Rfam assigns this 341-nucleotide RNA from Moraxella sp. VT-16-12 to the family "Bacterial RNase P class A".
A search with the family's covariance model found it, with a score of 322 bits.
NCBI's taxonomy places the organism under Bacteria, Pseudomonadati, Pseudomonadota, Moraxellaceae, Moraxella.
By type it is a ribozyme.
Its family is annotated with dimeric ribonuclease P complex, ribonuclease P activity and tRNA processing in the Gene Ontology.
[Rfam]
RNA sequence: UUGGCAGACCAGACAAUCGCCGUUCUUUUUUAGAAGGGAGGAAAGUCCGGACUACAUAGGGCGACGUGCCAGCUAACGGCUGGGCAGAGUAAUCUGACGACCAGUGCAACAGAGAAUAGACCGCCUGCAUUUGUAGGUAAGGGUGAAACGGUGGUGUAAGAGACCACCGCAUGACUGGUAACAGUUCAUGGCAAGGUAAACUCCACGUGUAGCAAGACCAAAUAGGUGUCCCAUAAGUUGCCCGCUUAGGACACGGGUAGGUUGCUUGAACAUAUCAGCGAUGAUGUGUCUAGAUGAAUGAUUGUCCACGACAGAAUCCGGCUUAUCGGUUUGCCAUUUUC
Number, nucleotide and partner (000 for none) at each position: 001u000002u336003g335004g334005c333006a332007g331008a330009c329010c328011a326012g306013a305014c304015a303016a302017u301018c300019g000020c038021c037022g000023u035024u034025c033026u032027u000028u000029u000030u000031u000032a026033g025034a024035a023036g000037g021038g020039a000040g000041g000042a000043a324044a323045g322046u000047c321048c320049g319050g318051a317052c212053u211054a210055c209056a000057u000058a000059g243060g242061g241062c240063g000064a208065c207066g206067u205068g204069c083070c082071a081072g080073c079074u000075a000076a000077c000078g000079g073080c072081u071082g070083g069084g098085c096086a095087g094088a093089g000090u000091a000092a000093u088094c087095u086096g085097a000098c084099g203100a202101c000102c000103a000104g201105u200106g197107c196108a000109a000110c000111a000112g000113a000114g000115a000116a000117u000118a000119g000120a000121c142122c141123g138124c137125c136126u135127g134128c133129a000130u000131u000132u000133g128134u127135a126136g125137g124138u123139a000140a000141g122142g121143g000144u000145g000146a000147a000148a000149c000150g168151g167152u166153g165154g164155u163156g000157u000158a000159a000160g000161a000162g000163a155164c154165c153166a152167c151168c150169g192170c190171a189172u188173g187174a186175c184176u183177g182178g000179u000180a000181a000182c177183a176184g175185u000186u174187c173188a172189u171190g170191g000192c169193a000194a000195g000196g107197u106198a000199a000200a105201c104202u100203c099204c068205a067206c066207g065208u064209g055210u054211a053212g052213c000214a000215a000216g263217a262218c261219c260220a000221a000222a000223u000224a000225g000226g254227u253228g252229u251230c250231c249232c000233a000234u248235a247236a246237g245238u244239u000240g062241c061242c060243c059244g238245c237246u236247u235248a234249g231250g230251a229252c228253a227254c226255g000256g000257g000258u000259a000260g219261g218262u217263u216264g000265c000266u000267u000268g000269a000270a289271c288272a287273u286274a285275u284276c283277a282278g000279c000280g000281a000282u277283g276284a275285u274286g273287u272288g271289u270290c000291u000292a000293g000294a000295u000296g000297a000298a000299u000300g018301a017302u016303u015304g014305u013306c012307c000308a000309c000310g000311a000312c000313a000314g000315a000316a000317u051318c050319c049320g048321g047322c045323u044324u043325a000326u011327c000328g010329g009330u008331u007332u006333g005334c004335c003336a002337u000338u000339u000340u000341c000